Rfam assigns this 60-nucleotide RNA from Equus caballus to the family "mir-874 microRNA precursor family". The sequence is in the family's curated seed alignment.
RNA sequence: GCGGCCCCACGCACCAGGGUAAGAGAGACUCUCGCUUCCUGCCCUGGCCCGAGGGACCGA
Numbered sequence: 001g002c003g004g005c006c007c008c009a010c011g012c013a014c015c016a017g018g019g020u021a022a023g024a025g026a027g028a029c030u031c032u033c034g035c036u037u038c039c040u041g042c043c044c045u046g047g048c049c050c051g052a053g054g055g056a057c058c059g060a
Stems, first nucleotide, its partner, number of pairs: 002059003006055003010051002014047008023038003
Pairs were carried over by alignment from the consensus structure, which was predicted with RNAalifold.
The organism belongs to Equus, within Eukaryota.
For this family Rfam cites "Characterization of bovine miRNAs by sequencing and bioinformatics analysis" (Jin et al., BMC Mol Biol, 2009).